[Rfam]
The family of this 104-nucleotide RNA sequence from Streptococcus uberis is "trpB ncRNA motif". Rfam classes the family as a cis-regulatory element. Taxonomically the source falls in Streptococcus uberis (Bacteria, Lactobacillales, Streptococcaceae, Streptococcus). For this family Rfam cites "The discovery of novel noncoding RNAs in 50 bacterial genomes" (Narunsky et al., Nucleic Acids Res, 2024). The match comes from Rfam's covariance-model search (67 bits). The base pairs follow the family's consensus structure, which is taken from published work. From the family's description: trpB ncRNA motif was reported as a strong cis regulatory motif candidate, with potential to be a cis regulatory riboswitch type, it have been identified in Firmicutes and Fusobacteria. The motif have been recognised upstream of an uncharacterized ABC transporter with strong homology to amino acid transporters. It is also occasionally located upstream of trpB gene, that codes for a tryptophan synthase.
RNA sequence: CGCAUAGAUACGACUUUUAGAGCACUUCUAAAAAGUAUCUAUGCGCUAAUACUCUGAUAAAAAAGCGCUUAGUAGACUCUCUGACUGGGUGCUUUUUCUUUUUG
Dot-bracket structure: (((((((((((...((((((.......)))))).)))))))))))..................((((((((((..........))))))))))...........